This 102-nucleotide RNA sequence from Alkalicoccobacillus porphyridii belongs to the Rfam family "Purine riboswitch aptamer". Taxonomically the source falls in Alkalicoccobacillus (Bacteria, Bacillati, Bacilli, Bacillaceae).
RNA sequence: AUCUAUAUAUGGAUAUAACAUCGUAUAACCUUGGUAAUAUGGACCAAGGGUUUCUACUUAGGAGCCUUAAACUUCCUAGCUACGAGAAUAGGUUUGCCCUAU
Numbered sequence: 001a002u003c004u005a006u007a008u009a010u011g012g013a014u015a016u017a018a019c020a021u022c023g024u025a026u027a028a029c030c031u032u033g034g035u036a037a038u039a040u041g042g043a044c045c046a047a048g049g050g051u052u053u054c055u056a057c058u059u060a061g062g063a064g065c066c067u068u069a070a071a072c073u074u075c076c077u078a079g080c081u082a083c084g085a086g087a088a089u090a091g092g093u094u095u096g097c098c099c100u101a102u
Stems, first nucleotide, its partner, number of pairs: 021085005029049007058078001061075004